[Rfam]
RNA: Actinobacteria sRNA Ms_IGR-5
Organism: Microlunatus phosphovorus
Nucleotides: 213
Stems, first nucleotide, its partner, number of pairs: 014060003018056002061106004066101002069098006124207013
Number, partner (000 for none) and nucleotide at each position: 001000a002000c003000a004000c005000a006000g007000g008000a009000g010000a011000g012000g013000a014060g015059g016058u017000g018056g019055u020000c021000c022000a023000a024000a025000g026000a027000c028000a029000u030000g031000a032000a033000g034000g035000c036000u037000u038000a039000u040000u041000g042000g043000a044000c045000u046000u047000g048000u049000g050000a051000g052000g053000u054000g055019g056018c057000g058016g059015c060014c061106a062105g063104c064103u065000a066101g067100c068000c069098g070097c071096u072095g073094c074093g075000c076000g077000a078000c079000c080000u081000g082000u083000g084000a085000a086000g087000g088000u089000c090000g091000g092000c093074c094073g095072c096071a097070g098069c099000g100067g101066c102000c103064g104063g105062c106061u107000a108000a109000u110000c111000c112000a113000c114000a115000g116000c117000c118000a119000a120000c121000a122000c123000c124207c125206g126205a127204a128203c129202c130201c131200g132199c133198g134197a135196a136195c137000g138000u139000c140000g141000g142000a143000c144000u145000c146000g147000u148000c149000c150000c151000c152000c153000g154000a155000c156000c157000g158000u159000g160000g161000u162000c163000a164000g165000g166000c167000u168000g169000a170000g171000a172000g173000c174000g175000a176000u177000c178000u179000c180000g181000a182000c183000c184000c185000a186000a187000c188000c189000a190000c191000g192000a193000c194000a195136g196135u197134u198133c199132g200131c201130g202129g203128g204127u205126u206125u207124g208000u209000c210000g211000c212000g213000u